[Rfam]
RNA: ZMP/ZTP riboswitch aptamer (pfl RNA motif)
Organism: Lacisediminihabitans profunda
RNA sequence: UGAUCGGGUCGCGACUGGCGUUGAGGUGGGUAACCAUCGGGGAGCGACCUUCUACGAUUCGGCCGUACGCCUGGGCCGAACCG
Numbered sequence: 001u002g003a004u005c006g007g008g009u010c011g012c013g014a015c016u017g018g019c020g021u022u023g024a025g026g027u028g029g030g031u032a033a034c035c036a037u038c039g040g041g042g043a044g045c046g047a048c049c050u051u052c053u054a055c056g057a058u059u060c061g062g063c064c065g066u067a068c069g070c071c072u073g074g075g076c077c078g079a080a081c082c083g
Base pairs, nucleotide, nucleotide: 003053006050007049008048009047010046011045012044015041016040017071018070019069020068021067026037027036028035029034060078061077062076063075064074